Annotation
Rfam assigns this 75-nucleotide RNA from Drancourtella sp. An57 to the family "S4-Clostridia ribosomal protein leader". Lineage of the source: Bacteria > Bacillati > Bacillota > Eubacteriales > Drancourtella. For this family Rfam cites "Discovery of 20 novel ribosomal leader candidates in bacteria and archaea" (Eckert and Weinberg, BMC Microbiol, 2020).
RNA sequence: GAAAGGGCAUAUUUAACAUACCGGAUAUGCCUGGGCACAUCAGUAUUCCGUCAAAUACGGUAUGCCCCAGUUAAA
Numbered sequence: 001g002a003a004a005g006g007g008c009a010u011a012u013u014u015a016a017c018a019u020a021c022c023g024g025a026u027a028u029g030c031c032u033g034g035g036c037a038c039a040u041c042a043g044u045a046u047u048c049c050g051u052c053a054a055a056u057a058c059g060g061u062a063u064g065c066c067c068c069a070g071u072u073a074a075a
Stems, first nucleotide, its partner, number of pairs: 005032010033067005039061003